[Rfam]
RNA sequence: AUAAACAACUACCUUCUACUCUUCUAUCCUUUUAAGAUCUAUCCUUCUUAUCUAUUCAUCAUGGGCCCCUGCUCCUGCAACUGCUGCUCCGGCGACUGCAACUCUUGCUCUUGCUCCACCUGCAAGGUAUGUUCCU
Numbered sequence: 001a002u003a004a005a006c007a008a009c010u011a012c013c014u015u016c017u018a019c020u021c022u023u024c025u026a027u028c029c030u031u032u033u034a035a036g037a038u039c040u041a042u043c044c045u046u047c048u049u050a051u052c053u054a055u056u057c058a059u060c061a062u063g064g065g066c067c068c069c070u071g072c073u074c075c076u077g078c079a080a081c082u083g084c085u086g087c088u089c090c091g092g093c094g095a096c097u098g099c100a101a102c103u104c105u106u107g108c109u110c111u112u113g114c115u116c117c118a119c120c121u122g123c124a125a126g127g128u129a130u131g132u133u134c135c136u
Base pairs, nucleotide, nucleotide: 070094071093072092073091077087078086079085098123099122100121107114108113
The record is a 136-nucleotide RNA from Penicillium arizonense, which matches "A. fumigatus sRNA Afu_254" in Rfam. By type it is a small RNA. The organism belongs to Penicillium, within Eukaryota. A reference for the family is Jochl et al. (2008), "Small ncRNA transcriptome analysis from Aspergillus fumigatus suggests a novel mechanism for regulation of protein synthesis", Nucleic Acids Res.